[Rfam]
RNA: permuted transfer-messenger RNA
Organism: Octadecabacter arcticus
RNA sequence: GGAUAUAAACGCACUUGCAAUAAGCGGAUCGGACCCGGGGGCGGUACCCGGCGUCUCCACCAUCACGCCCUUUACUGGGAUGGCUCAUUUGGCCGAUAUGGGGACGAAAUAGGAUCGACGAACGUCUAAAGAGGUUAGCUUUAUCUCGGUGAGUUACCACCGUUAUCGGUACAUCAAAGCUAGUUGCAAAUGACAACAAUGCUCAGGUAGCACUCGCAGCGUAA
Number, nucleotide and partner (000 for none) at each position: 001g146002g145003a144004u143005a142006u000007a000008a000009a000010c000011g000012c000013a135014c134015u133016u132017g000018c000019a000020a000021u000022a000023a000024g000025c124026g123027g000028a000029u121030c120031g119032g000033a000034c000035c051036c050037g049038g048039g047040g000041g000042c000043g000044g000045u000046a000047c039048c038049c037050g036051g035052c106053g105054u104055c103056u102057c101058c100059a000060c000061c000062a000063u000064c000065a000066c000067g000068c000069c000070c000071u000072u000073u000074a000075c000076u000077g000078g000079g000080a000081u000082g000083g000084c000085u000086c000087a000088u000089u000090u000091g000092g000093c000094c000095g000096a000097u000098a000099u000100g058101g057102g056103g055104a054105c053106g052107a000108a000109a000110u000111a000112g000113g000114a000115u000116c000117g000118a000119c031120g030121a029122a000123c026124g025125u000126c000127u000128a000129a000130a000131g000132a016133g015134g014135u013136u000137a000138g000139c000140u000141u000142u005143a004144u003145c002146u001147c162148g161149g160150u159151g000152a000153g000154u000155u000156a000157c000158c000159a150160c149161c148162g147163u000164u000165a000166u000167c000168g000169g000170u000171a000172c000173a000174u000175c000176a000177a000178a000179g000180c000181u000182a000183g000184u000185u000186g000187c000188a000189a000190a000191u000192g000193a000194c000195a000196a000197c000198a000199a000200u000201g000202c000203u000204c000205a000206g000207g000208u000209a000210g000211c000212a000213c000214u000215c000216g000217c000218a000219g000220c000221g000222u000223a000224a000